Source information:
Flavo-1 RNA: an 86-nucleotide RNA from Ekhidna lutea. NCBI's taxonomy places the organism under Bacteria, Pseudomonadati, Bacteroidota, Cytophagales, Ekhidna. The family's consensus secondary structure is taken from published work. A search with the family's covariance model found it, with a score of 54 bits.

RNA sequence: UCUUAGACCCGAUAGGAGUGGCAUCCUUUUACAUUUAGGUUGGGCAGUGGGAGGUGCAAAAGAUACAGCGGAUAGCGGGAGCGCCU
Numbered sequence: 001u002c003u004u005a006g007a008c009c010c011g012a013u014a015g016g017a018g019u020g021g022c023a024u025c026c027u028u029u030u031a032c033a034u035u036u037a038g039g040u041u042g043g044g045c046a047g048u049g050g051g052a053g054g055u056g057c058a059a060a061a062g063a064u065a066c067a068g069c070g071g072a073u074a075g076c077g078g079g080a081g082c083g084c085c086u
Stems, first nucleotide, its partner, number of pairs: 009078003013074002018069002023064003029059002032056005